[Rfam]
RNA: Yersinia sRNA 276
RNA sequence: GACUGACAUCAGAGAUUCAUUCUGAGAACCUUGACCAACAGCCAGGUAGGCAUUCAUGCCUAGCUCUUUCAUCUGCUCUUCACCAAUCACUUUUGUUGUAAUAUGGCUAUUGGCAGAAUCUGCGAGCUGGCGUGCCUGAGAAGCCAGAUAAGCGGCAUUACAGAUAUUGGGUGGCAUAUUACUAAGAUCUUUGGC
Numbered sequence: 001g002a003c004u005g006a007c008a009u010c011a012g013a014g015a016u017u018c019a020u021u022c023u024g025a026g027a028a029c030c031u032u033g034a035c036c037a038a039c040a041g042c043c044a045g046g047u048a049g050g051c052a053u054u055c056a057u058g059c060c061u062a063g064c065u066c067u068u069u070c071a072u073c074u075g076c077u078c079u080u081c082a083c084c085a086a087u088c089a090c091u092u093u094u095g096u097u098g099u100a101a102u103a104u105g106g107c108u109a110u111u112g113g114c115a116g117a118a119u120c121u122g123c124g125a126g127c128u129g130g131c132g133u134g135c136c137u138g139a140g141a142a143g144c145c146a147g148a149u150a151a152g153c154g155g156c157a158u159u160a161c162a163g164a165u166a167u168u169g170g171g172u173g174g175c176a177u178a179u180u181a182c183u184a185a186g187a188u189c190u191u192u193g194g195c
Base pairs, nucleotide, nucleotide: 005189006188012032013031014030016028017027018026020024033043035041050059051058062077063076064075079134081132083130084129085128087126092122095119096118097117099112100111101110102109103108136163137162138161140159141158143156144155145154167186168185170183171182172181